A member of the RNA family "DUF805b RNA", 35 nucleotides long. Rfam's curators put it in the seed alignment.
RNA sequence: AGGGAGGUAUCCGAAAAUCCUUAACAGAGUAGGAU
Numbered sequence: 001a002g003g004g005a006g007g008u009a010u011c012c013g014a015a016a017a018u019c020c021u022u023a024a025c026a027g028a029g030u031a032g033g034a035u
Stems, first nucleotide, its partner, number of pairs: 002021004010034003